[Rfam]
RNA sequence: GUUCAAAAUAUAGUGUUGUCUUUUCCAAGCACAUAUCUAAUUGUUCUGUGUGGAAAAUUACUAUGUGAUUUUUUGGAU
Numbered sequence: 001g002u003u004c005a006a007a008a009u010a011u012a013g014u015g016u017u018g019u020c021u022u023u024u025c026c027a028a029g030c031a032c033a034u035a036u037c038u039a040a041u042u043g044u045u046c047u048g049u050g051u052g053g054a055a056a057a058u059u060a061c062u063a064u065g066u067g068a069u070u071u072u073u074u075g076g077a078u
Stems, first nucleotide, its partner, number of pairs: 001078006008071001010069001
RNA: Small nucleolar RNA SNORD121A
Organism: Dicaeum eximium